[Rfam]
RNA sequence: GUUUGCAAUCAAAUUCGUUUUCGAAUGUUCAAUUUUCGUUUUUAAAAAUGUAUUCGUUCGAUUACGAAUCAACAUCGAUUUAAACAAUCGAAUAAAUGUCAAAAAAAUAUGACUUUUUUUAAAAAAUGUUAUAAUUUCGAUGUUAUGCGAUUAAUUCGAAUUGAAAAUUAUGUUUCGAUUAAAAUGUUAACGUAAUAAUUGUAAACAAUUCGUUUUGAAACACGA
Numbered sequence: 001g002u003u004u005g006c007a008a009u010c011a012a013a014u015u016c017g018u019u020u021u022c023g024a025a026u027g028u029u030c031a032a033u034u035u036u037c038g039u040u041u042u043u044a045a046a047a048a049u050g051u052a053u054u055c056g057u058u059c060g061a062u063u064a065c066g067a068a069u070c071a072a073c074a075u076c077g078a079u080u081u082a083a084a085c086a087a088u089c090g091a092a093u094a095a096a097u098g099u100c101a102a103a104a105a106a107a108u109a110u111g112a113c114u115u116u117u118u119u120u121a122a123a124a125a126a127u128g129u130u131a132u133a134a135u136u137u138c139g140a141u142g143u144u145a146u147g148c149g150a151u152u153a154a155u156u157c158g159a160a161u162u163g164a165a166a167a168u169u170a171u172g173u174u175u176c177g178a179u180u181a182a183a184a185u186g187u188u189a190a191c192g193u194a195a196u197a198a199u200u201g202u203a204a205a206c207a208a209u210u211c212g213u214u215u216u217g218a219a220a221c222a223c224g225a
Stems, first nucleotide, its partner, number of pairs: 001206009011196001016066003021061003071188005210225004